A member of the RNA family "Group II catalytic intron D1-D4-1" from Thermotalea metallivorans, 86 nucleotides long. Lineage of the source: Bacteria > Bacillota > Clostridia > Peptostreptococcales > Thermotalea. About the family: Group II introns are found in rRNA, tRNA and mRNA of organelles in fungi, plants and protists, and also in mRNA in bacteria.

[Rfam]
RNA sequence: CAACCGAUGUAGUGAUACAUAACUGAACUGUCAGAAGUCAGCAGAAGCCAUAGUAUUGGGCUAGGUUAACAUAGCCUAAGAAGGGC
Numbered sequence: 001c002a003a004c005c006g007a008u009g010u011a012g013u014g015a016u017a018c019a020u021a022a023c024u025g026a027a028c029u030g031u032c033a034g035a036a037g038u039c040a041g042c043a044g045a046a047g048c049c050a051u052a053g054u055a056u057u058g059g060g061c062u063a064g065g066u067u068a069a070c071a072u073a074g075c076c077u078a079a080g081a082a083g084g085g086c
Base pairs, nucleotide, nucleotide: 001025002024007020008019009018010017011016038045039044047086048085049084056079057078058077059076060075061074
Dot-bracket structure: ((....(((((....)))))...))............((....)).(((......((((((............))))))....)))